[Rfam]
RNA sequence: AACAGGGGGCAUCCCCGCCAAAAAAGGCUGAACCGGCGGCGCCAUCAAGCGCGCGGCCGGCGAAU
Numbered sequence: 001a002a003c004a005g006g007g008g009g010c011a012u013c014c015c016c017g018c019c020a021a022a023a024a025a026g027g028c029u030g031a032a033c034c035g036g037c038g039g040c041g042c043c044a045u046c047a048a049g050c051g052c053g054c055g056g057c058c059g060g061c062g063a064a065u
Stems, first nucleotide, its partner, number of pairs: 033060005039054002043049001
Source information
Rfam assigns this 65-nucleotide RNA from Gibbsiella quercinecans to the family "DnaX ribosomal frameshifting element". On this family, see Blinkova et al., J Bacteriol 1997: "Conservation of the Escherichia coli dnaX programmed ribosomal frameshift signal in Salmonella typhimurium". About the family: This family represents a ribosomal frameshifting element found in the mRNA of the dnaX gene in E. coli. The dnaX gene has two encoded products tau and gamma which are produced in a 1:1 ratio. The gamma protein is synthesised due to programmed frameshifting and is shorter than tau. The two products of the dnaX gene are DNA polymerase III subunits. The family's RNA type in Rfam is frameshift element. A search with the family's covariance model found it, with a score of 49 bits.